This 191-nucleotide RNA sequence belongs to the Rfam family "Group II catalytic intron D1-D4-5". For this family Rfam cites "Group II introns: structure and catalytic versatility of large natural ribozymes" (Lehmann and Schmidt, Crit Rev Biochem Mol Biol, 2003). Rfam's curators write: Group II introns are found in rRNA, tRNA and mRNA of organelles in fungi, plants and protists, and also in mRNA in bacteria. Pairs were carried over by alignment from the consensus structure.
RNA sequence: UGAAAUGAGGGGGUAACGUCCCGAAGCGCCACCCUAAUACUCCGAAUGGCGGGGAGCAUGCAACGGCUCUCUCCAAAAGUUUAUAGAGCUCGGUGAAGUCGGCAGAGAGCAACCGUAAGACUGGUUUUCAGACCAGACACGAAAGCUGUCCAGAGGUGGAUGGUGUUGCCUAUAUGCCGGGGGUCGGAUAU
Numbered sequence: 001u002g003a004a005a006u007g008a009g010g011g012g013g014u015a016a017c018g019u020c021c022c023g024a025a026g027c028g029c030c031a032c033c034c035u036a037a038u039a040c041u042c043c044g045a046a047u048g049g050c051g052g053g054g055a056g057c058a059u060g061c062a063a064c065g066g067c068u069c070u071c072u073c074c075a076a077a078a079g080u081u082u083a084u085a086g087a088g089c090u091c092g093g094u095g096a097a098g099u100c101g102g103c104a105g106a107g108a109g110c111a112a113c114c115g116u117a118a119g120a121c122u123g124g125u126u127u128u129c130a131g132a133c134c135a136g137a138c139a140c141g142a143a144a145g146c147u148g149u150c151c152a153g154a155g156g157u158g159g160a161u162g163g164u165g166u167u168g169c170c171u172a173u174a175u176g177c178c179g180g181g182g183g184u185c186g187g188a189u190a191u
Base pairs, nucleotide, nucleotide: 001028002027010022011021012020013019032183033182034181035180042093043092044091045090046084047083048081049080050079051074052073053072054071055070056069100179101178102177103176104175109169110168111167112166113165114141115140116139145164146163147162148161149160150159151158152157